This 104-nucleotide sequence from Paenibacillus sp. FSL R5-0912 belongs to the Rfam family "Purine riboswitch aptamer". Taxonomically the source falls in Paenibacillus (Bacteria, Bacillati, Bacilli, Paenibacillaceae). A reference for the family is Reining et al. (2013), "Three-state mechanism couples ligand and temperature sensing in riboswitches", Nature.
[Rfam]
RNA sequence: AACAGGCUUAUCAUAAUACCUCAUAUAAUCUUGGGAAUAUGGCCCAUAAGUUUCUACCGGAUGACCACUGUAAUUAUCCGACUAUGAGUGAAAUAGCGCAUCUA
Number, nucleotide and partner (000 for none) at each position: 001a000002a000003c000004a000005g000006g000007c000008u000009u000010a000011u000012c000013a000014u000015a000016a000017u000018a000019c000020c088021u087022c086023a085024u084025a083026u000027a000028a000029u049030c000031u000032u046033g045034g044035g043036a000037a000038u000039a000040u000041g000042g000043c035044c034045c033046a032047u000048a000049a029050g000051u000052u000053u000054c000055u000056a000057c000058c080059g079060g078061a077062u076063g075064a074065c000066c000067a000068c000069u000070g000071u000072a000073a000074u064075u063076a062077u061078c060079c059080g058081a000082c000083u025084a024085u023086g022087a021088g020089u000090g000091a000092a000093a000094u000095a000096g000097c000098g000099c000100a000101u000102c000103u000104a000